[Rfam]
RNA sequence: GUGAACACUCGGUCCUGAGAACUGAAUUCCAUAGAUGGUGAGUCAAGGAUUGCCCAUCUAUGGGCUCAGUUCUUAUGGUCUGGUGUUCAUAA
Number, nucleotide and partner (000 for none) at each position: 001g000002u000003g000004a000005a000006c000007a000008c083009u082010c000011g080012g079013u078014c000015c000016u000017g000018a073019g072020a071021a070022c069023u068024g067025a066026a000027u000028u000029c000030c000031a000032u000033a059034g058035a057036u056037g000038g000039u000040g000041a000042g000043u000044c000045a000046a000047g000048g000049a000050u000051u000052g000053c000054c000055c000056a036057u035058c034059u033060a000061u000062g000063g000064g000065c000066u025067c024068a023069g022070u021071u020072c019073u018074u000075a000076u000077g000078g013079u012080c011081u000082g009083g008084u000085g000086u000087u000088c000089a000090u000091a000092a000

This 92-nucleotide RNA from Anguilla anguilla belongs to the Rfam family "mir-146 microRNA precursor family". The match comes from Rfam's covariance-model search (56 bits). A reference for the family is Lagos-Quintana et al. (2002), "Identification of tissue-specific microRNAs from mouse", Curr Biol. The family's consensus secondary structure was predicted with WAR. The family has 33 seed sequences and 1,617 matches in Rfam 15.1. Rfam links the family to the GO terms RISC complex and miRNA-mediated post-transcriptional gene silencing.